RNA sequence: UUGAGUAACGCAAACAUUGGUGAGAAUCCAAUGCCCCGAAAACCUAAGGGUUCCUCCGCAAGGUUCGUCCACGGAGGGUGAGUCAGGGCCUAAGAUCAGGCCGAAAGGCGUAGUCGAUGGACAACAGGUGAAUAUUCCUGUACUACCCCUUGUUGGUCCCGAGGGACGGAGGAGGCUAGGUUAGCCGAAGGAUGGUUAUCGGUUCAAGGACGCAAGGUGACCUUGCUUUUUCAGGGUAAGAAGGGGUAGAGGAAAUGCCUCGAGCCAAUGUCCGAGUACCAGGCGCUACGGCGCGGAAGUAACCCAUGCCAUACUCCCAGGAAAAGCUCGAACGACCUUCAACAAAAGGGUACCUGUACCCGAAACCGACACAGGUGGGUAGGUAGAGAAUACCUAGGGGCG
Numbered sequence: 001u002u003g004a005g006u007a008a009c010g011c012a013a014a015c016a017u018u019g020g021u022g023a024g025a026a027u028c029c030a031a032u033g034c035c036c037c038g039a040a041a042a043c044c045u046a047a048g049g050g051u052u053c054c055u056c057c058g059c060a061a062g063g064u065u066c067g068u069c070c071a072c073g074g075a076g077g078g079u080g081a082g083u084c085a086g087g088g089c090c091u092a093a094g095a096u097c098a099g100g101c102c103g104a105a106a107g108g109c110g111u112a113g114u115c116g117a118u119g120g121a122c123a124a125c126a127g128g129u130g131a132a133u134a135u136u137c138c139u140g141u142a143c144u145a146c147c148c149c150u151u152g153u154u155g156g157u158c159c160c161g162a163g164g165g166a167c168g169g170a171g172g173a174g175g176c177u178a179g180g181u182u183a184g185c186c187g188a189a190g191g192a193u194g195g196u197u198a199u200c201g202g203u204u205c206a207a208g209g210a211c212g213c214a215a216g217g218u219g220a221c222c223u224u225g226c227u228u229u230u231u232c233a234g235g236g237u238a239a240g241a242a243g244g245g246g247u248a249g250a251g252g253a254a255a256u257g258c259c260u261c262g263a264g265c266c267a268a269u270g271u272c273c274g275a276g277u278a279c280c281a282g283g284c285g286c287u288a289c290g291g292c293g294c295g296g297a298a299g300u301a302a303c304c305c306a307u308g309c310c311a312u313a314c315u316c317c318c319a320g321g322a323a324a325a326g327c328u329c330g331a332a333c334g335a336c337c338u339u340c341a342a343c344a345a346a347a348g349g350g351u352a353c354c355u356g357u358a359c360c361c362g363a364a365a366c367c368g369a370c371a372c373a374g375g376u377g378g379g380u381a382g383g384u385a386g387a388g389a390a391u392a393c394c395u396a397g398g399g400g401c402g
Stems, first nucleotide, its partner, number of pairs: 015033006034400004042380004048360002053077006062070002084356003089120002094115003099111001100109003124141005144352005150346002162328002168316002172312001174310003179304005184203005208273004285292001366375002381395004
Rfam assigns this 402-nucleotide part of an RNA from Musa balbisiana to the family "Archaeal large subunit ribosomal RNA". A search with the family's covariance model found it, with a score of 1484 bits. The organism belongs to Musa, within Eukaryota.